[Rfam]
RNA: ZMP/ZTP riboswitch aptamer (pfl RNA motif)
RNA sequence: GAACUCAUCCGCAACUGGCGCCUGAGGUGGUCACCACCGGGGAGCGGACAAACAGAGGAUCGCUAGUCGCUCGCCUGGGCAAGUGAU
Numbered sequence: 001g002a003a004c005u006c007a008u009c010c011g012c013a014a015c016u017g018g019c020g021c022c023u024g025a026g027g028u029g030g031u032c033a034c035c036a037c038c039g040g041g042g043a044g045c046g047g048a049c050a051a052a053c054a055g056a057g058g059a060u061c062g063c064u065a066g067u068c069g070c071u072c073g074c075c076u077g078g079g080c081a082a083g084u085g086a087u
Stems, first nucleotide, its partner, number of pairs: 005051001008048005015041002017075004027037004064082001066080003